[Rfam]
RNA sequence: GCGAUGAGCUAUUUUGCGUAAGUCGAAGGACGAGCUUUAGUGCUAACGUUGAAUGUGGUCAACGGUUCUUUGCCGCAAAACGUACAUGACACUUGAUGAGUCAAGUGUA
Numbered sequence: 001g002c003g004a005u006g007a008g009c010u011a012u013u014u015u016g017c018g019u020a021a022g023u024c025g026a027a028g029g030a031c032g033a034g035c036u037u038u039a040g041u042g043c044u045a046a047c048g049u050u051g052a053a054u055g056u057g058g059u060c061a062a063c064g065g066u067u068c069u070u071u072g073c074c075g076c077a078a079a080a081c082g083u084a085c086a087u088g089a090c091a092c093u094u095g096a097u098g099a100g101u102c103a104a105g106u107g108u109a
Stems, first nucleotide, its partner, number of pairs: 014078005024072008034043002047064002050061003089108008
RNA: BsrF
Organism: Paraliobacillus quinghaiensis